RNA sequence: GCUCCGCACGGUGAGGCCUCCUCCCGCCCGGUCUGGCGCACUUCCCCGGCGCCAGAAAGGACGCGGAGGGAGACCUGACCGUACGGGGCCCGCAGC
Number, nucleotide and partner (000 for none) at each position: 001g000002c000003u000004c000005c000006g000007c000008a082009c081010g080011g079012u078013g000014a000015g075016g074017c000018c072019u071020c070021c069022u068023c000024c066025c065026g064027c063028c060029c059030g000031g000032u056033c055034u054035g053036g052037c051038g050039c049040a000041c000042u000043u000044c000045c000046c000047c000048g000049g039050c038051g037052c036053c035054a034055g033056a032057a000058a000059g029060g028061a000062c000063g027064c026065g025066g024067a000068g022069g021070g020071a019072g018073a000074c016075c015076u000077g000078a012079c011080c010081g009082u008083a000084c000085g000086g000087g000088g000089c000090c000091c000092g000093c000094a000095g000096c000
This 96-nucleotide RNA sequence from Cellulosimicrobium sp. MM belongs to the Rfam family "mraW RNA". Rfam 15.1 lists 851 matches to the family in 821 species. It scores 53 bits against the family's covariance model.